The family of this 94-nucleotide RNA from Mycoplasma sp. OR1901 is "Bacterial small signal recognition particle RNA". The organism belongs to Mycoplasma, within Bacteria. The literature on the family includes a 2003 paper in Nucleic Acids Res by Rosenblad et al., "SRPDB: Signal Recognition Particle Database". About the family: The signal recognition particle (SRP) is a universally conserved ribonucleoprotein involved in the co-translational targeting of proteins to membranes.
RNA sequence: AAUAAAGCCAUCUAAACAAUAACCCACUAACUUGGUCAGGACAGAAAUGUAGCAGCCAUAUGAGGAAGUGUUGUGUUAGUUGGUCUUUUUUACG
Numbered sequence: 001a002a003u004a005a006a007g008c009c010a011u012c013u014a015a016a017c018a019a020u021a022a023c024c025c026a027c028u029a030a031c032u033u034g035g036u037c038a039g040g041a042c043a044g045a046a047a048u049g050u051a052g053c054a055g056c057c058a059u060a061u062g063a064g065g066a067a068g069u070g071u072u073g074u075g076u077u078a079g080u081u082g083g084u085c086u087u088u089u090u091u092a093c094g
Base pairs, nucleotide, nucleotide: 004089005088006087007086008083009082010081012079013078016074017073018072019071020070021069024065025064027062033058034057035056036055041050042049043048
The match comes from Rfam's covariance-model search (50 bits). The family's RNA type in Rfam is non-coding RNA gene.